[Rfam]
RNA sequence: GGGGCAGCGGCAUGGAGAGCUGUACAGACUCUGAGGGAGGGAGGGUGGUGCCACUGAGCUCAAUCAGUGAAAGGCUCUCUCGCUCACAGUCUGCACAGCUCUCUGUGUCUCCUCCCC
Numbered sequence: 001g002g003g004g005c006a007g008c009g010g011c012a013u014g015g016a017g018a019g020c021u022g023u024a025c026a027g028a029c030u031c032u033g034a035g036g037g038a039g040g041g042a043g044g045g046u047g048g049u050g051c052c053a054c055u056g057a058g059c060u061c062a063a064u065c066a067g068u069g070a071a072a073g074g075c076u077c078u079c080u081c082g083c084u085c086a087c088a089g090u091c092u093g094c095a096c097a098g099c100u101c102u103c104u105g106u107g108u109c110u111c112c113u114c115c116c117c
Stems, first nucleotide, its partner, number of pairs: 001117004007111001009109015025093006032086004037081001
The family of this 117-nucleotide sequence from Ceratodon purpureus is "MIR533 microRNA precursor family".
The organism belongs to Ceratodon, within Eukaryota.
Its family is annotated with miRNA-mediated post-transcriptional gene silencing and RISC complex in the Gene Ontology.